[Rfam]
RNA sequence: AUUUACACUGAGUGGCCAGGUUAUUGUGAUCUCUGAAUCCAUAAUAAUCUGGUCACUCAGUGUGUAU
Numbered sequence: 001a002u003u004u005a006c007a008c009u010g011a012g013u014g015g016c017c018a019g020g021u022u023a024u025u026g027u028g029a030u031c032u033c034u035g036a037a038u039c040c041a042u043a044a045u046a047a048u049c050u051g052g053u054c055a056c057u058c059a060g061u062g063u064g065u066a067u
Base pairs, nucleotide, nucleotide: 004064005063006062007061008060009059010058011057012056013055014054015053016052017051019049020048021047022046023045024044025043026042027041028040
A member of the RNA family "mir-9256 microRNA precursor family" from Pipistrellus kuhlii, 67 nucleotides long. Rfam links the family to the GO terms RISC complex and miRNA-mediated post-transcriptional gene silencing. The organism belongs to Pipistrellus, within Eukaryota. The match comes from Rfam's covariance-model search (82 bits).